[Rfam]
RNA sequence: AGCACGAAAUCUCCCCACUACGCUCUUUUUCGAAAUAUGAACGAUCCAAAAGAUUUAGAAUAAGGAAACAGAAAAACAGAAAGGUGGGGUGAACCCAAAAGAAAUGGUAGGCACGAUUGGACUCGAACCAACGACCCCUACCA
Numbered sequence: 001a002g003c004a005c006g007a008a009a010u011c012u013c014c015c016c017a018c019u020a021c022g023c024u025c026u027u028u029u030u031c032g033a034a035a036u037a038u039g040a041a042c043g044a045u046c047c048a049a050a051a052g053a054u055u056u057a058g059a060a061u062a063a064g065g066a067a068a069c070a071g072a073a074a075a076a077c078a079g080a081a082a083g084g085u086g087g088g089g090u091g092a093a094c095c096c097a098a099a100a101g102a103a104a105u106g107g108u109a110g111g112c113a114c115g116a117u118u119g120g121a122c123u124c125g126a127a128c129c130a131a132c133g134a135c136c137c138c139u140a141c142c143a
Stems, first nucleotide, its partner, number of pairs: 021043002024037001026035002054068003105140003110135001114133002117131004
The record is a 143-nucleotide sequence from Oxalobacter paraformigenes, which matches "Bacterial antisense RNA HPnc0260" in Rfam. The base pairs follow the family's consensus structure, which was predicted with CMfinder.